[Rfam]
Shown here is a 303-nucleotide RNA sequence from Apium graveolens, a member of the family "Plant signal recognition particle RNA". For this family Rfam cites "Structural and energetic analysis of RNA recognition by a universally conserved protein from the signal recognition particle" (Batey et al., J Mol Biol, 2001). NCBI's taxonomy places the organism under Eukaryota, Streptophytina, Euphyllophyta, Apiineae, Apium.
RNA sequence: UCUGGGCCUUGUAGCGGGGGCCUGUUACUCAUGUGAGAGAUUUGAGAUGGUUGAAGAUUGGCAUGGUUCAGAAGGUCGGUCUCUGCUGAGUAAUUCACAAGCAUGCCCAUUUCAAGUAUGGAGUUGUACCAUGGGUCUUGGGCGAAGGCCUGGACCUCAUGGUCACUAAAGGGGAAGGCACUGCGCUAGGCAGGUUCCACUGAGCAGCGAUAACUUCCCUCUCCUGUCGGUGGAAGGAUAACAUGCAUGUUCUUGGCAAGUCCAUUAGCACCUGAUGAGCCACUCAACCCAACAACCAUCUUU
Numbered sequence: 001u002c003u004g005g006g007c008c009u010u011g012u013a014g015c016g017g018g019g020g021c022c023u024g025u026u027a028c029u030c031a032u033g034u035g036a037g038a039g040a041u042u043u044g045a046g047a048u049g050g051u052u053g054a055a056g057a058u059u060g061g062c063a064u065g066g067u068u069c070a071g072a073a074g075g076u077c078g079g080u081c082u083c084u085g086c087u088g089a090g091u092a093a094u095u096c097a098c099a100a101g102c103a104u105g106c107c108c109a110u111u112u113c114a115a116g117u118a119u120g121g122a123g124u125u126g127u128a129c130c131a132u133g134g135g136u137c138u139u140g141g142g143c144g145a146a147g148g149c150c151u152g153g154a155c156c157u158c159a160u161g162g163u164c165a166c167u168a169a170a171g172g173g174g175a176a177g178g179c180a181c182u183g184c185g186c187u188a189g190g191c192a193g194g195u196u197c198c199a200c201u202g203a204g205c206a207g208c209g210a211u212a213a214c215u216u217c218c219c220u221c222u223c224c225u226g227u228c229g230g231u232g233g234a235a236g237g238a239u240a241a242c243a244u245g246c247a248u249g250u251u252c253u254u255g256g257c258a259a260g261u262c263c264a265u266u267a268g269c270a271c272c273u274g275a276u277g278a279g280c281c282a283c284u285c286a287a288c289c290c291a292a293c294a295a296c297c298a299u300c301u302u303u
Stems, first nucleotide, its partner, number of pairs: 001040003004023007028037003044302010056290001058287003061283001065280001068278003073273004078263002081260002084258003088254003092251002098249002101246005107237002110235005116228001120224004128163008138153006166171001172219006184209003191202003

About this RNA
A search with the family's covariance model found it, with a score of 204 bits. Pairs were carried over by alignment from the consensus structure, which is taken from published work. Clan: SRP clan.